Rfam assigns this 108-nucleotide sequence from Plutella xylostella to the family "mir-8517 microRNA precursor family".

RNA sequence: UAAUAGAACGUUUUAGCUAUUGAACUUUUUUAUCAGUCUCUUACAGAGAACAAUUUGUUCCUUGACAGAGGGGGACAAAACAGUUCAAUAGCUAAAACGUUCUAUUAC
Dot-bracket structure: ((((((....((((((((((((((((.((((.(((.............((((...))))...))).)))..........).))))))))))))))))....)))))).
Its family is annotated with RISC complex and miRNA-mediated post-transcriptional gene silencing in the Gene Ontology.